Rfam assigns this 103-nucleotide sequence to the family "Pyrrolysine insertion sequence mttB".
A reference for the family is Theil Have et al. (2013), "Effects of using coding potential, sequence conservation and mRNA structure conservation for predicting pyrroly-sine containing genes", BMC Bioinformatics.
It is annotated as a cis-regulatory element.
Its family is annotated with pyrrolysine incorporation in the Gene Ontology.
RNA sequence: UAGGCAGAUGCCAAGGUUCCGGAUGCGCAAGCAGCUCACGAAAAAACCUUAACACUCAUGCUACCAGUACUGCAAGCUGAUGGCAGAAGAAUUUACGGAUUUG
Numbered sequence: 001u002a003g004g005c006a007g008a009u010g011c012c013a014a015g016g017u018u019c020c021g022g023a024u025g026c027g028c029a030a031g032c033a034g035c036u037c038a039c040g041a042a043a044a045a046a047c048c049u050u051a052a053c054a055c056u057c058a059u060g061c062u063a064c065c066a067g068u069a070c071u072g073c074a075a076g077c078u079g080a081u082g083g084c085a086g087a088a089g090a091a092u093u094u095a096c097g098g099a100u101u102u103g
Stems, first nucleotide, its partner, number of pairs: 003012001025032001033062003080101001